[Rfam]
RNA: Flavo-1 RNA
Organism: Flavobacterium sp. GT3R68
RNA sequence: CCCUAGCCCCGAUGGAAGGGAAAAUCCCACGCUUUUUCAGCGUGGAUUGGAAUGACAGCGGGAAGUCAU
Number, nucleotide and partner (000 for none) at each position: 001c000002c000003c000004u000005a000006g000007c000008c000009c061010c060011g059012a000013u057014g056015g000016a000017a000018g053019g000020g000021a000022a000023a048024a047025u046026c045027c000028c044029a043030c042031g041032c040033u039034u000035u000036u000037u000038c000039a033040g032041c031042g030043u029044g028045g026046a025047u024048u023049g000050g000051a000052a000053u018054g000055a000056c014057a013058g000059c011060g010061g009062g000063a000064a000065g000066u000067c000068a000069u000